RNA sequence: AGCUUGAUUAUAACAAUAAGGCACCUCGGUGAAGACACAAGACCAUGUGGCCGAGACAUUACCUUCGCUUUCGAGCGUACUACGCAUUUCUACUCAGAGGGAUACCUUUGUUUAGAUGUGCUUCGGAGAGUCGUGAGAUUUUCUGAUUGCGGGAGGCUGAACCAACCGCUGUUAGAGGUAAUGGUGCUGAAGUAAUUGCUGAUAAAAACAUUGUCUCAUUGCUAUCGCAAUAGAAAGCUAGGCGUCAAAAGCGUAAGCCGAAUCCAAGUAAGGGUGUAGAUUGGUCGUCUAUACUAAACCUUGGAAAAGACCAAUAAGGUAGUUUGCUGUGAUGGUAUGGAAACAUACCUAUAAGAUGAGGUCAAAGUCCGAGUAGCUACAAGCAAGGACUCUUGUAAAAAAGAAAUUACUAAGGAAAUUUCUGAAUGGUUAGUGAAAGGUGCGAGUAACCAAUCUCGUAUAGGAAUUGAUACUUUGUAUCGGGGCAAGAACUUAUAGAGCGACGGCUCUAUGGGUCAGACUUGUCUCCCUAUUGGUUGAAUAUAUCAGAAAAUUAUGGAGGUAGGGUGAAGGCCCGCCUUGUAGUUAUAAUCAAG
Numbered sequence: 001a002g003c004u005u006g007a008u009u010a011u012a013a014c015a016a017u018a019a020g021g022c023a024c025c026u027c028g029g030u031g032a033a034g035a036c037a038c039a040a041g042a043c044c045a046u047g048u049g050g051c052c053g054a055g056a057c058a059u060u061a062c063c064u065u066c067g068c069u070u071u072c073g074a075g076c077g078u079a080c081u082a083c084g085c086a087u088u089u090c091u092a093c094u095c096a097g098a099g100g101g102a103u104a105c106c107u108u109u110g111u112u113u114a115g116a117u118g119u120g121c122u123u124c125g126g127a128g129a130g131u132c133g134u135g136a137g138a139u140u141u142u143c144u145g146a147u148u149g150c151g152g153g154a155g156g157c158u159g160a161a162c163c164a165a166c167c168g169c170u171g172u173u174a175g176a177g178g179u180a181a182u183g184g185u186g187c188u189g190a191a192g193u194a195a196u197u198g199c200u201g202a203u204a205a206a207a208a209c210a211u212u213g214u215c216u217c218a219u220u221g222c223u224a225u226c227g228c229a230a231u232a233g234a235a236a237g238c239u240a241g242g243c244g245u246c247a248a249a250a251g252c253g254u255a256a257g258c259c260g261a262a263u264c265c266a267a268g269u270a271a272g273g274g275u276g277u278a279g280a281u282u283g284g285u286c287g288u289c290u291a292u293a294c295u296a297a298a299c300c301u302u303g304g305a306a307a308a309g310a311c312c313a314a315u316a317a318g319g320u321a322g323u324u325u326g327c328u329g330u331g332a333u334g335g336u337a338u339g340g341a342a343a344c345a346u347a348c349c350u351a352u353a354a355g356a357u358g359a360g361g362u363c364a365a366a367g368u369c370c371g372a373g374u375a376g377c378u379a380c381a382a383g384c385a386a387g388g389a390c391u392c393u394u395g396u397a398a399a400a401a402a403g404a405a406a407u408u409a410c411u412a413a414g415g416a417a418a419u420u421u422c423u424g425a426a427u428g429g430u431u432a433g434u435g436a437a438a439g440g441u442g443c444g445a446g447u448a449a450c451c452a453a454u455c456u457c458g459u460a461u462a463g464g465a466a467u468u469g470a471u472a473c474u475u476u477g478u479a480u481c482g483g484g485g486c487a488a489g490a491a492c493u494u495a496u497a498g499a500g501c502g503a504c505g506g507c508u509c510u511a512u513g514g515g516u517c518a519g520a521c522u523u524g525u526c527u528c529c530c531u532a533u534u535g536g537u538u539g540a541a542u543a544u545a546u547c548a549g550a551a552a553a554u555u556a557u558g559g560a561g562g563u564a565g566g567g568u569g570a571a572g573g574c575c576c577g578c579c580u581u582g583u584a585g586u587u588a589u590a591a592u593c594a595a596g
Base pairs, nucleotide, nucleotide: 009591013587019581020580021579025055026054027053028052029051036049037048038047039046057183058182059181060180061179062178085120086119087118089116090115092113095110096109097108098107099106100105123146124145125144126143127142128141129140130139131138132137149169150168151167152166195555197553207544208538211366212365213362214361215360216359217358218357219356220355221323222322223321224320225319226318242254243253244252245251263305264304265303266302267301268300273295274294275293276292278290279289280288282313283312284311285310324386325385326384327383328382334349335348336347337346338345370439376434377433378432379431421520422519423518424517446456461532462531463530464481469480482529483528484527485526488523489522493515494513495512496511498509499508500507501506565576566575567574568573
The family of this 596-nucleotide RNA is "ROOL RNA". Rfam classes the family as a small RNA. Firmicutes, Fusobacteria (1 example), Tenericutes (1 example). Rfam's curators put it in the seed alignment.